RNA sequence: GACGAGCUAGCUUGUGUGAGCUUGUAACCCAAGCGGGGGCAUAAAAGUGGUUGAACCCUAGCUCGACUCUGACUAGUAGGGUCUGUUCGGAGUGGUAUAUUGACUUGUGCUGCCCAUUCCAAGUUGUGAGUUGAAUUAUGUGGCUCUACCGAAGGCUUGAACCACAUGGUUCCUAGAGGGGAGGCAUUGCGCUAGGCUGUUUUCACAGAGCAGCGACUACCUCCCGCUCUCAACUGUGGAAGGAUAACAAGUCGGUGCACCUCAGACCCCCAAAAAUAACUGCCUGAAGAGCUGAACCCAGUUGAAAAACCACCUUU
Numbered sequence: 001g002a003c004g005a006g007c008u009a010g011c012u013u014g015u016g017u018g019a020g021c022u023u024g025u026a027a028c029c030c031a032a033g034c035g036g037g038g039g040c041a042u043a044a045a046a047g048u049g050g051u052u053g054a055a056c057c058c059u060a061g062c063u064c065g066a067c068u069c070u071g072a073c074u075a076g077u078a079g080g081g082u083c084u085g086u087u088c089g090g091a092g093u094g095g096u097a098u099a100u101u102g103a104c105u106u107g108u109g110c111u112g113c114c115c116a117u118u119c120c121a122a123g124u125u126g127u128g129a130g131u132u133g134a135a136u137u138a139u140g141u142g143g144c145u146c147u148a149c150c151g152a153a154g155g156c157u158u159g160a161a162c163c164a165c166a167u168g169g170u171u172c173c174u175a176g177a178g179g180g181g182a183g184g185c186a187u188u189g190c191g192c193u194a195g196g197c198u199g200u201u202u203u204c205a206c207a208g209a210g211c212a213g214c215g216a217c218u219a220c221c222u223c224c225c226g227c228u229c230u231c232a233a234c235u236g237u238g239g240a241a242g243g244a245u246a247a248c249a250a251g252u253c254g255g256u257g258c259a260c261c262u263c264a265g266a267c268c269c270c271c272a273a274a275a276a277u278a279a280c281u282g283c284c285u286g287a288a289g290a291g292c293u294g295a296a297c298c299c300a301g302u303u304g305a306a307a308a309a310c311c312a313c314c315u316u317u
Stems, first nucleotide, its partner, number of pairs: 001040001003038001004023005010017002028037003043317003047313006056304001058301002061297001063295003068287002071284001073282001075281003079269007090261001092260003096257002105255003111249002114243002117241005122235005128229004133172011145160002148157001150155001173178001179225006190215003197208003
The record is a 317-nucleotide RNA sequence from Tetracentron sinense, which matches "Plant signal recognition particle RNA" in Rfam.
NCBI's taxonomy places the organism under Eukaryota, Viridiplantae, Embryophyta, Spermatophyta, Tetracentron.
Its family is annotated with signal recognition particle, endoplasmic reticulum targeting and SRP-dependent cotranslational protein targeting to membrane, signal sequence recognition in the Gene Ontology.